[Rfam]
RNA sequence: CAAACAUGAAGGUGGAACAGGUAUCCACCACCUAGUGAAAACUAUAGGAGAUGCAGAUUACCACCUGCCAUGUUUA
Numbered sequence: 001c002a003a004a005c006a007u008g009a010a011g012g013u014g015g016a017a018c019a020g021g022u023a024u025c026c027a028c029c030a031c032c033u034a035g036u037g038a039a040a041a042c043u044a045u046a047g048g049a050g051a052u053g054c055a056g057a058u059u060a061c062c063a064c065c066u067g068c069c070a071u072g073u074u075u076a
Stems, first nucleotide, its partner, number of pairs: 002075007011029005020062004031048001033044004053068004
skipping-rope RNA: a 76-nucleotide sequence.
Pairs were carried over by alignment from the consensus structure, which is taken from published work.